[Rfam]
RNA sequence: GUAGGGCGUUGUGCACAGUGUCAGUCUGUGUCUGGGCCACUAGCUUGUGUUCUGCAUGUUGGUGGCUCUGUACAUGUAACCUGUAGCCAUAGAUCAUCAUGAGAUCAUAGUACUGGUCCAGUGACAUCCUCAGGGUGAUCUCCCCGCUGACCGGCCUCCAAUCUCUCUGACAUGU
Numbered sequence: 001g002u003a004g005g006g007c008g009u010u011g012u013g014c015a016c017a018g019u020g021u022c023a024g025u026c027u028g029u030g031u032c033u034g035g036g037c038c039a040c041u042a043g044c045u046u047g048u049g050u051u052c053u054g055c056a057u058g059u060u061g062g063u064g065g066c067u068c069u070g071u072a073c074a075u076g077u078a079a080c081c082u083g084u085a086g087c088c089a090u091a092g093a094u095c096a097u098c099a100u101g102a103g104a105u106c107a108u109a110g111u112a113c114u115g116g117u118c119c120a121g122u123g124a125c126a127u128c129c130u131c132a133g134g135g136u137g138a139u140c141u142c143c144c145c146g147c148u149g150a151c152c153g154g155c156c157u158c159c160a161a162u163c164u165c166u167c168u169g170a171c172a173u174g175u
Stems, first nucleotide, its partner, number of pairs: 013084003029074003033070003036066002039063005046056003101167004113154006120148004128135002
Description
The record is a 175-nucleotide RNA sequence from Hymenochirus boettgeri, which matches "Small nucleolar RNA SNORA23" in Rfam. The base pairs follow the family's consensus structure, which was predicted with RNAalifold. By type it is an H/ACA-box small nucleolar RNA. For this family Rfam cites "RNomics: an experimental approach that identifies 201 candidates for novel, small, non-messenger RNAs in mouse" (Huttenhofer et al., EMBO J, 2001). Rfam describes the family as follows. The members of this family belong to the H/ACA class of snoRNAs which are thought to guide the sites of modification of uridines to pseudouridines. This family includes human snoRNA ACA23 (SNORA23) and mouse snoMBI-1. ACA23 is predicted to guide the pseudouridylation of residue U3737 and U4331 of 28S rRNA.